[Rfam]
RNA sequence: CAGUUAAAAAGCUCGUAGUUGGAUCUCGGGACGGGGCGAAUGGUCCGCCCUUGCGGGUGUGCACUGGUCGCCCCGUCCUUUGAGUCGGUGACGCUACUCUGGUCUUUACUGGCUGGGGUGCGGAGUCGGCGAUGUUACUUUGAAGAAAUUAGAGUGCUCAAAGCAGGCUCGUGCUCUGAAUACAUUAGCAUGGGAUAACAUCAUAGGAUUUCGGUCCUAUUGUGUUGGCCUUCGGGAUCGGAGUAAUGAUUAACAGGAACAGUCGGGGGCAUUCGUAUUUCAUAGUCAGAGGUGAAAUUCUUGGAUUUAUGAAAGACGAACAACUGCGAAAGCAUUUGCCAAGGAUGUUUUCAUUAAUCAAGAACGAAAGUUGGGGGCUCGAAGACGAUCAGAUACCGUCCUAGUCUCAACCAUAAACGAUGCCGACCAGGGAUCGGCGGAUGUUGCUUUAAGGACUCCGCCGGCACCUUAUGAGAAAUCAAAGUCUUUGGGUUCCGGGGGGAGUAUGGUCGCAAGGCUGAAACUUAAAGGAAU
Numbered sequence: 001c002a003g004u005u006a007a008a009a010a011g012c013u014c015g016u017a018g019u020u021g022g023a024u025c026u027c028g029g030g031a032c033g034g035g036g037c038g039a040a041u042g043g044u045c046c047g048c049c050c051u052u053g054c055g056g057g058u059g060u061g062c063a064c065u066g067g068u069c070g071c072c073c074c075g076u077c078c079u080u081u082g083a084g085u086c087g088g089u090g091a092c093g094c095u096a097c098u099c100u101g102g103u104c105u106u107u108a109c110u111g112g113c114u115g116g117g118g119u120g121c122g123g124a125g126u127c128g129g130c131g132a133u134g135u136u137a138c139u140u141u142g143a144a145g146a147a148a149u150u151a152g153a154g155u156g157c158u159c160a161a162a163g164c165a166g167g168c169u170c171g172u173g174c175u176c177u178g179a180a181u182a183c184a185u186u187a188g189c190a191u192g193g194g195a196u197a198a199c200a201u202c203a204u205a206g207g208a209u210u211u212c213g214g215u216c217c218u219a220u221u222g223u224g225u226u227g228g229c230c231u232u233c234g235g236g237a238u239c240g241g242a243g244u245a246a247u248g249a250u251u252a253a254c255a256g257g258a259a260c261a262g263u264c265g266g267g268g269g270c271a272u273u274c275g276u277a278u279u280u281c282a283u284a285g286u287c288a289g290a291g292g293u294g295a296a297a298u299u300c301u302u303g304g305a306u307u308u309a310u311g312a313a314a315g316a317c318g319a320a321c322a323a324c325u326g327c328g329a330a331a332g333c334a335u336u337u338g339c340c341a342a343g344g345a346u347g348u349u350u351u352c353a354u355u356a357a358u359c360a361a362g363a364a365c366g367a368a369a370g371u372u373g374g375g376g377g378c379u380c381g382a383a384g385a386c387g388a389u390c391a392g393a394u395a396c397c398g399u400c401c402u403a404g405u406c407u408c409a410a411c412c413a414u415a416a417a418c419g420a421u422g423c424c425g426a427c428c429a430g431g432g433a434u435c436g437g438c439g440g441a442u443g444u445u446g447c448u449u450u451a452a453g454g455a456c457u458c459c460g461c462c463g464g465c466a467c468c469u470u471a472u473g474a475g476a477a478a479u480c481a482a483a484g485u486c487u488u489u490g491g492g493u494u495c496c497g498g499g500g501g502g503a504g505u506a507u508g509g510u511c512g513c514a515a516g517g518c519u520g521a522a523a524c525u526u527a528a529a530g531g532a533a534u
Base pairs, nucleotide, nucleotide: 001497003495009494011365013363014362018358019357020356256352257351258350259349260347261346263344264343268340269339270338271337274318275317278314279313280312281311282310283309284308285307289300290299291298326333327332370411371410372409373408374407375406380404384400385399386398387397422493423492424491425486426485427484429469430468431467434464435463436462437461438460439459440458441457443456444455445454473480474479499526500525501524508519509518510517511516

Rfam assigns this 534-nucleotide part of an RNA from Phrynocephalus forsythii to the family "Eukaryotic small subunit ribosomal RNA". For this family Rfam cites "Crystal structure of the ribosome at 5.5 A resolution" (Yusupov et al., Science, 2001).